[Rfam]
RNA sequence: GGACGCUGGUUUCAGGUGGUGGCUUAGAGUGUCAUGUCAUUUAUCUAGCACCAUUUGAAAUCAGUGUUCC
Numbered sequence: 001g002g003a004c005g006c007u008g009g010u011u012u013c014a015g016g017u018g019g020u021g022g023c024u025u026a027g028a029g030u031g032u033c034a035u036g037u038c039a040u041u042u043a044u045c046u047a048g049c050a051c052c053a054u055u056u057g058a059a060a061u062c063a064g065u066g067u068u069c070c
Stems, first nucleotide, its partner, number of pairs: 001070003005065010016054006025047004